[Rfam]
RNA sequence: GUUUUGAGUAGAAGCAGUCAGGGGUUGAAGACAACGUCAAUCCACGGGUCAUUGCUCACUGU
Numbered sequence: 001g002u003u004u005u006g007a008g009u010a011g012a013a014g015c016a017g018u019c020a021g022g023g024g025u026u027g028a029a030g031a032c033a034a035c036g037u038c039a040a041u042c043c044a045c046g047g048g049u050c051a052u053u054g055c056u057c058a059c060u061g062u
Base pairs, nucleotide, nucleotide: 005058006057007056008055009054010053015047019048021045023043024042026040
Source information: The record is a 62-nucleotide RNA from Venatorbacter sp. C2-1, which matches "Xanthine riboswitch aptamer (NMT1 RNA)" in Rfam. Taxonomically the source falls in Venatoribacter (Bacteria, Pseudomonadati, Pseudomonadota, Oceanospirillaceae). It scores 38 bits against the family's covariance model. On this family, see Yu and Breaker, RNA 2020: "A bacterial riboswitch class senses xanthine and uric acid to regulate genes associated with purine oxidation".